[Rfam]
A member of the RNA family "Bacterial small subunit ribosomal RNA" from candidate division TM7 genomosp. GTL1, 357 nucleotides of a longer RNA. Rfam's curators put it in the seed alignment.

RNA sequence: GGCGUAAAGAGUUGCGUAGGCGGUUUGUUAAGCAGAUAGUGAAAUCAUAUGGCUCAACCAUUAUGGCUAUUAUCUGAACUGGCAAACUCGAGAAUGGUAGAGGUAACUGGAAUUUCUAGUGUAGGAGUGAAAUCCGUAGAUAUUAGAAGGAACACCAAUGGCGUAGGCAGGUUACUGGACCAUUUCUGACGCUAAGGCACGAAAGCGUGGGGAGCGAACCGGAUUAGAUACCCGGGUAGUCCACGCCGUAAACUAUGGAUGCUAGCUGUUGGAGGUAUCGACCCCUUCAGUAGCGAAGCUAACGCGUUAAGCAUCCCGCCUGUGGAGUACGGCCGCAAGGCUAAAACAUAAAGGAAU
Numbered sequence: 001g002g003c004g005u006a007a008a009g010a011g012u013u014g015c016g017u018a019g020g021c022g023g024u025u026u027g028u029u030a031a032g033c034a035g036a037u038a039g040u041g042a043a044a045u046c047a048u049a050u051g052g053c054u055c056a057a058c059c060a061u062u063a064u065g066g067c068u069a070u071u072a073u074c075u076g077a078a079c080u081g082g083c084a085a086a087c088u089c090g091a092g093a094a095u096g097g098u099a100g101a102g103g104u105a106a107c108u109g110g111a112a113u114u115u116c117u118a119g120u121g122u123a124g125g126a127g128u129g130a131a132a133u134c135c136g137u138a139g140a141u142a143u144u145a146g147a148a149g150g151a152a153c154a155c156c157a158a159u160g161g162c163g164u165a166g167g168c169a170g171g172u173u174a175c176u177g178g179a180c181c182a183u184u185u186c187u188g189a190c191g192c193u194a195a196g197g198c199a200c201g202a203a204a205g206c207g208u209g210g211g212g213a214g215c216g217a218a219c220c221g222g223a224u225u226a227g228a229u230a231c232c233c234g235g236g237u238a239g240u241c242c243a244c245g246c247c248g249u250a251a252a253c254u255a256u257g258g259a260u261g262c263u264a265g266c267u268g269u270u271g272g273a274g275g276u277a278u279c280g281a282c283c284c285c286u287u288c289a290g291u292a293g294c295g296a297a298g299c300u301a302a303c304g305c306g307u308u309a310a311g312c313a314u315c316c317c318g319c320c321u322g323u324g325g326a327g328u329a330c331g332g333c334c335g336c337a338a339g340g341c342u343a344a345a346a347c348a349u350a351a352a353g354g355a356a357u
Base pairs, nucleotide, nucleotide: 001320002319003318009317011200013199014198015197017194019193020192021191023087024086025085026084027083028082029081031080032079033076034075035074036073037072038071039070040069041068046065047064048063049062050060051059052058091187092186093185094183095182096181097180098179102176103175104174105173106172107171108170109153113149114148115147116146117145118144119143120142124135125134126133161168162167205246206245207244208243209242210241214240215239219235220234221233222232257316258315259314260313261312262311265294266293267292268291269290270289271288272287273286274285275284298305299304322349323348324347331342332341333340334339
The organism belongs to Candidatus Saccharimonadota, within Bacteria. Pairs were carried over by alignment from the consensus structure, which is taken from published work.